[Rfam]
RNA sequence: UGAUACAUUGAAGGGGAGCUUUAAUCGGCUGAGAGUAGAUGCGUUCUAGACCCAUAACCUGAUUUGGAUAAUGCCAACGUAGGGAAAAUGAUUUAUUGCGCA
Number, nucleotide and partner (000 for none) at each position: 001u000002g000003a000004u000005a000006c090007a089008u088009u087010g000011a000012a000013g053014g052015g051016g000017a000018g029019c028020u027021u000022u000023a000024a000025u000026c000027g020028g019029c018030u000031g000032a000033g000034a000035g000036u048037a047038g046039a045040u000041g000042c000043g000044u000045u039046c038047u037048a036049g000050a000051c015052c014053c013054a000055u000056a000057a000058c083059c082060u081061g080062a000063u000064u077065u076066g075067g074068a000069u000070a000071a000072u000073g000074c067075c066076a065077a064078c000079g000080u061081a060082g059083g058084g000085a000086a000087a009088a008089u007090g006091a000092u000093u000094u000095a000096u000097u000098g000099c000100g000101c000102a000
A member of the RNA family "TPP riboswitch aptamer (THI element)" from Mageeibacillus indolicus, 102 nucleotides long. It scores 54 bits against the family's covariance model. The family's consensus secondary structure is taken from published work. The organism belongs to Mageeibacillus indolicus, within Bacteria.